[Rfam]
RNA sequence: UUUCAUGCUGUGACCCUACAAAGGGAAGCACUUUCUGUUGUCUAAAAGAAAAGAAGGCACUUCCCUUUGGAGGAUUACGGUUUGAGA
Numbered sequence: 001u002u003u004c005a006u007g008c009u010g011u012g013a014c015c016c017u018a019c020a021a022a023g024g025g026a027a028g029c030a031c032u033u034u035c036u037g038u039u040g041u042c043u044a045a046a047a048g049a050a051a052a053g054a055a056g057g058c059a060c061u062u063c064c065c066u067u068u069g070g071a072g073g074a075u076u077a078c079g080g081u082u083u084g085a086g087a
Stems, first nucleotide, its partner, number of pairs: 001087005007081007016072002020068009031057005038052002